[Rfam]
Nucleotides: 068
Base pairs, nucleotide, nucleotide: 004065005064006063007061008060010059011058012057013056014055015054016053017052018051019050020049021048023046024045026043027042028041
Number, partner (000 for none) and nucleotide at each position: 001000a002000g003000c004065g005064g006063c007061c008060a009000u010059c011058a012057a013056a014055g015054u016053g017052g018051a019050g020049g021048c022000c023046c024045u025000c026043u027042c028041u029000u030000g031000a032000g033000c034000c035000u036000g037000a038000a039000u040000g041028a042027g043026a044000a045024a046023g047000u048021g049020c050019u051018u052017c053016c054015a055014c056013u057012u058011u059010g060008u061007g062000u063006g064005c065004c066000a067000c068000u